[Rfam]
This 120-nucleotide RNA sequence from Cajanus cajan belongs to the Rfam family "MIR828 microRNA precursor family".
The family has 16 seed sequences and 204 matches in Rfam 15.1.
RNA sequence: GUAAUGUUUCUUGCUCAAAUGAGUAUUCCAACCACAAUCAGCAUUUGGCAUGCACAUCAUUACCAUGUGCACAUCACUAUGAUCAGAAGUUGAGAUGCUCAUUUGAGCAAGCAAUGUUAA
Numbered sequence: 001g002u003a004a005u006g007u008u009u010c011u012u013g014c015u016c017a018a019a020u021g022a023g024u025a026u027u028c029c030a031a032c033c034a035c036a037a038u039c040a041g042c043a044u045u046u047g048g049c050a051u052g053c054a055c056a057u058c059a060u061u062a063c064c065a066u067g068u069g070c071a072c073a074u075c076a077c078u079a080u081g082a083u084c085a086g087a088a089g090u091u092g093a094g095a096u097g098c099u100c101a102u103u104u105g106a107g108c109a110a111g112c113a114a115u116g117u118u119a120a
Stems, first nucleotide, its partner, number of pairs: 004117005010111018029092004